[Rfam]
RNA sequence: AUAUUUUAUAUCGGGAGCUUGAAAAGGCUGAGAGUAUGAUGUUUUCGUAGACCGAUUGAACCUGUUGGGUAAUGCCAGCGUAGGGAAUGUGAUUAAAUUAUUAC
Number, nucleotide and partner (000 for none) at each position: 001a000002u000003a000004u000005u000006u092007u091008a090009u089010a088011u055012c054013g053014g052015g000016a000017g028018c027019u026020u025021g000022a000023a000024a000025a020026g019027g018028c017029u000030g000031a000032g000033a000034g000035u049036a048037u047038g046039a045040u000041g000042u000043u000044u000045u039046c038047g037048u036049a035050g000051a000052c014053c013054g012055a011056u000057u000058g000059a000060a000061c084062c083063u082064g081065u078066u077067g076068g075069g000070u000071a000072a000073u000074g000075c068076c067077a066078g065079c000080g000081u064082a063083g062084g061085g000086a000087a000088u010089g009090u008091g007092a006093u000094u000095a000096a000097a000098u000099u000100a000101u000102u000103a000104c000